[Rfam]
RNA: Glycine riboswitch aptamer
RNA sequence: ACUCUGGAGAGAGCUCGCUGCAGGCGAGUCGCCGACGGGGAUGAAACUCUCAGGCGCCAGGACAGAGU
Numbered sequence: 001a002c003u004c005u006g007g008a009g010a011g012a013g014c015u016c017g018c019u020g021c022a023g024g025c026g027a028g029u030c031g032c033c034g035a036c037g038g039g040g041a042u043g044a045a046a047c048u049c050u051c052a053g054g055c056g057c058c059a060g061g062a063c064a065g066a067g068u
Stems, first nucleotide, its partner, number of pairs: 001068006013029004031055003034051002038049003
Dot-bracket structure: ((((((......((((.........)))).(((((..(((......))))).))).......))))))